[Rfam]
RNA sequence: GCAUCAUCAUCACCAUAUGCGGUAGCCUUCGGAAGCUCACUGCCGAAGGACUAUUUCCUUCCGGCGGUUGAUUUAAAAAUAUCAAAAACCCUUGGAAGGAAUUCCAAGGGUUUUUUGGUU
Dot-bracket structure: .......((..(.(...(.((........)).).).)...))(.((((((.....)))))).)..................(.((((((((((((((....)))))))))))))).)...
RNA: Histidine operon leader